[Rfam]
RNA: mir-290 microRNA precursor family
Organism: Cricetulus griseus
RNA sequence: GUGGUACUCAAACUAUGGGGGCACUUUUUUUUUCUGGAAUAAAGUGCUGGCAGGUUUUGAGUGCUGC
Numbered sequence: 001g002u003g004g005u006a007c008u009c010a011a012a013c014u015a016u017g018g019g020g021g022c023a024c025u026u027u028u029u030u031u032u033u034c035u036g037g038a039a040u041a042a043a044g045u046g047c048u049g050g051c052a053g054g055u056u057u058u059g060a061g062u063g064c065u066g067c
Base pairs, nucleotide, nucleotide: 004064005063006062007061008060009059010058011057012056016052017051020048021047022046023045024044025043026042027041